[Rfam]
The record is a 199-nucleotide RNA from Oryza brachyantha, which matches "MIR1435 microRNA precursor family" in Rfam.
RNA sequence: UAGUUUUGUUCUAGGUCAAACUUAUCUAACUUUGACUGAGUUUAUUGAUAAAUGCACCAACAUCUACACUAACAAAUCUAUACACUAUCAAAACUUAUUACAUGGUGGAUUUAAUAAAACCAAUUUGUUGUUGUAGAUGUUGGUUCAUUUUUUUAUAAACUUGUCAAAGUUAGAGAAGUUUGAUUUAGGAUGAAACCAA
Numbered sequence: 001u002a003g004u005u006u007u008g009u010u011c012u013a014g015g016u017c018a019a020a021c022u023u024a025u026c027u028a029a030c031u032u033u034g035a036c037u038g039a040g041u042u043u044a045u046u047g048a049u050a051a052a053u054g055c056a057c058c059a060a061c062a063u064c065u066a067c068a069c070u071a072a073c074a075a076a077u078c079u080a081u082a083c084a085c086u087a088u089c090a091a092a093a094c095u096u097a098u099u100a101c102a103u104g105g106u107g108g109a110u111u112u113a114a115u116a117a118a119a120c121c122a123a124u125u126u127g128u129u130g131u132u133g134u135a136g137a138u139g140u141u142g143g144u145u146c147a148u149u150u151u152u153u154u155a156u157a158a159a160c161u162u163g164u165c166a167a168a169g170u171u172a173g174a175g176a177a178g179u180u181u182g183a184u185u186u187a188g189g190a191u192g193a194a195a196c197c198a199a
Stems, first nucleotide, its partner, number of pairs: 005194005011188013025174002031168005046155003050151003056144002059141010072128006
Lineage of the source: Eukaryota > Streptophytina > Tracheophyta > Poales > Oryza.
Pairs were carried over by alignment from the consensus structure, which was predicted with RNAalifold.